[Rfam]
RNA sequence: CUCUCGCUCAAAAAAUCGCAAUCGAAGCUCACACACUGACAGCACCUCGUGUGCUCGUCUACGUACAUACAGCUUUGGGAGAAAGUCCCCGGACGCCUUGCACUUGCUGCAAGAUAGCGGAAACGCGCCGCCACAGAAGCAUCUUGCGGCUCAUCCCCUCGAGACCUCCAUCCUCUUCCAUCACCCUCUAUCGUCCGCACUCUUGCACAGAAACGUCAUGGCUCGGAUCGCACCUGGUCUGGAGACACGUCGCUUUCGGGCGGCGGCUCGGCAACGAGAGACGAUGAUAUGAGUCUGCUUUCCUGGUCAGCCGGUCUUGCUGCUUUGGCGCUGAAGGGCAGGAGGAGAUAGUGGGAUCACUGUUGGGGGACAAGUUGGGCUCAAGGUCAAGAGGCGGGUUCAUCGUCGUGGUCAACAGUUAUGCGAUUGCUCGCGUCUGUCACCUCUCCUCUGAAACUCUUCUUGGGCUGGUGCUGGAUCGCGAGUAACUCGAUGGGGCUUAUUCUUGAUGCGAGA
Numbered sequence: 001c002u003c004u005c006g007c008u009c010a011a012a013a014a015a016u017c018g019c020a021a022u023c024g025a026a027g028c029u030c031a032c033a034c035a036c037u038g039a040c041a042g043c044a045c046c047u048c049g050u051g052u053g054c055u056c057g058u059c060u061a062c063g064u065a066c067a068u069a070c071a072g073c074u075u076u077g078g079g080a081g082a083a084a085g086u087c088c089c090c091g092g093a094c095g096c097c098u099u100g101c102a103c104u105u106g107c108u109g110c111a112a113g114a115u116a117g118c119g120g121a122a123a124c125g126c127g128c129c130g131c132c133a134c135a136g137a138a139g140c141a142u143c144u145u146g147c148g149g150c151u152c153a154u155c156c157c158c159u160c161g162a163g164a165c166c167u168c169c170a171u172c173c174u175c176u177u178c179c180a181u182c183a184c185c186c187u188c189u190a191u192c193g194u195c196c197g198c199a200c201u202c203u204u205g206c207a208c209a210g211a212a213a214c215g216u217c218a219u220g221g222c223u224c225g226g227a228u229c230g231c232a233c234c235u236g237g238u239c240u241g242g243a244g245a246c247a248c249g250u251c252g253c254u255u256u257c258g259g260g261c262g263g264c265g266g267c268u269c270g271g272c273a274a275c276g277a278g279a280g281a282c283g284a285u286g287a288u289a290u291g292a293g294u295c296u297g298c299u300u301u302c303c304u305g306g307u308c309a310g311c312c313g314g315u316c317u318u319g320c321u322g323c324u325u326u327g328g329c330g331c332u333g334a335a336g337g338g339c340a341g342g343a344g345g346a347g348a349u350a351g352u353g354g355g356a357u358c359a360c361u362g363u364u365g366g367g368g369g370a371c372a373a374g375u376u377g378g379g380c381u382c383a384a385g386g387u388c389a390a391g392a393g394g395c396g397g398g399u400u401c402a403u404c405g406u407c408g409u410g411g412u413c414a415a416c417a418g419u420u421a422u423g424c425g426a427u428u429g430c431u432c433g434c435g436u437c438u439g440u441c442a443c444c445u446c447u448c449c450u451c452u453g454a455a456a457c458u459c460u461u462c463u464u465g466g467g468c469u470g471g472u473g474c475u476g477g478a479u480c481g482c483g484a485g486u487a488a489c490u491c492g493a494u495g496g497g498g499c500u501u502a503u504u505c506u507u508g509a510u511g512c513g514a515g516a
Stems, first nucleotide, its partner, number of pairs: 002516006008509004014428006022079001023077006041055005083501003087498004117126003315392005324385004328380002430485006
A member of the RNA family "RNase MRP" from Pseudocercospora fuligena, 516 nucleotides long. Its family is annotated with rRNA processing, ribonuclease MRP activity and ribonuclease MRP complex in the Gene Ontology. The base pairs follow the family's consensus structure, which is taken from published work. The literature on the family includes a 2005 paper in Biochem Biophys Res Commun by Walker and Avis, "Secondary structure probing of the human RNase MRP RNA reveals the potential for MRP RNA subsets". A search with the family's covariance model found it, with a score of 95 bits. The organism belongs to Pseudocercospora, within Eukaryota.